[Rfam]
RNA sequence: CCGUUGAGUUGCUUGAUGCAGCUUGAUUUUUCUCCUCUAUUUCUCCUUUGUAGACUUGGCGCAUAUCUCAAACGAUAUGCGCAUUUUU
Dot-bracket structure: ..(((((((((.......)))))))))........(((((.........)))))....(((((((((......)))))))))......
RNA: Neisseria metabolic switch regulator b (RcoF1/NgncR163)